[Rfam]
RNA sequence: ACAUCCCCUCUACCGGUCCCGGGUGGGCGCGUGCCGUCCCUUCGUGGAGGUUCCUGGUCUCCGCGCGAUUACACGCCGCAGACUCAAGGCACCUACACGAACGGUCGGUUCGUGUCCUUCCCAAAGAUCGGGAGCAGUAGGGCAUAGGUUGGAAGAGAAACCCUUUUGUGAAAAUGAUUUCUGCUUACUGCUUCUUUUCUUUUGGUAGUAUUUAGAUGCAUUUU
Numbered sequence: 001a002c003a004u005c006c007c008c009u010c011u012a013c014c015g016g017u018c019c020c021g022g023g024u025g026g027g028c029g030c031g032u033g034c035c036g037u038c039c040c041u042u043c044g045u046g047g048a049g050g051u052u053c054c055u056g057g058u059c060u061c062c063g064c065g066c067g068a069u070u071a072c073a074c075g076c077c078g079c080a081g082a083c084u085c086a087a088g089g090c091a092c093c094u095a096c097a098c099g100a101a102c103g104g105u106c107g108g109u110u111c112g113u114g115u116c117c118u119u120c121c122c123a124a125a126g127a128u129c130g131g132g133a134g135c136a137g138u139a140g141g142g143c144a145u146a147g148g149u150u151g152g153a154a155g156a157g158a159a160a161c162c163c164u165u166u167u168g169u170g171a172a173a174a175u176g177a178u179u180u181c182u183g184c185u186u187a188c189u190g191c192u193u194c195u196u197u198u199c200u201u202u203u204g205g206u207a208g209u210a211u212u213u214a215g216a217u218g219c220a221u222u223u224u
Stems, first nucleotide, its partner, number of pairs: 006142004010137002013131006021122003025117006033109003038104002041101006048094004053089003056084004062078002065076003146164002148161003171224006180216004186210006
Shown here is a 224-nucleotide RNA sequence from Norovirus norwalkense, a member of the family "Murine norovirus 3'UTR". On this family, see Bailey et al., J Virol 2010: "Functional analysis of RNA structures present at the 3' extremity of the murine norovirus genome: the variable polypyrimidine tract plays a role in viral virulence". The base pairs follow the family's consensus structure, which is taken from published work. By type it is a cis-regulatory element. The organism belongs to Murine norovirus, within Viruses.